A member of the RNA family "ZMP/ZTP riboswitch aptamer (pfl RNA motif)" from Pseudoclavibacter sp. CFCC 13611, 154 nucleotides long. Rfam 15.1 lists 3,295 matches to the family in 2,545 species. A search with the family's covariance model found it, with a score of 44 bits. On this family, see Jones and Ferre-D'Amare, Nat Struct Mol Biol 2015: "Recognition of the bacterial alarmone ZMP through long-distance association of two RNA subdomains". Taxonomically the source falls in Pseudoclavibacter (Bacteria, Bacillati, Actinomycetota, Microbacteriaceae).

[Rfam]
RNA sequence: GGACGCUGUCGCGACUGGCGUUUUUGCAGUCUGACUGCCGAAUGCGAAUCAGACGGGUGAUCUGUCUGAUGAGCAUCCAGUGGCAGACUUCGAAAUGAGAUGGACACCAUCGGGGAGCGACACACGGAUUGGGCCGCACGCCUGGGCCUCGACA
Number, nucleotide and partner (000 for none) at each position: 001g000002g000003a000004c000005g000006c000007u122008g121009u120010c119011g118012c117013g000014a000015c114016u113017g142018g141019c140020g139021u138022u000023u000024u000025u000026g000027c000028a000029g000030u000031c000032u000033g000034a000035c000036u000037g000038c000039c000040g000041a000042a000043u000044g000045c000046g000047a000048a000049u000050c000051a000052g000053a000054c000055g000056g000057g000058u000059g000060a000061u000062c000063u000064g000065u000066c000067u000068g000069a000070u000071g000072a000073g000074c000075a000076u000077c000078c000079a000080g000081u000082g000083g000084c000085a000086g000087a000088c000089u000090u000091c000092g000093a000094a000095a000096u000097g000098a000099g000100a110101u109102g108103g107104a000105c000106a000107c103108c102109a101110u100111c000112g000113g016114g015115g000116a000117g012118c011119g010120a009121c008122a007123c000124a000125c000126g000127g000128a000129u000130u000131g149132g148133g147134c146135c145136g000137c000138a021139c020140g019141c018142c017143u000144g000145g135146g134147c133148c132149u131150c000151g000152a000153c000154a000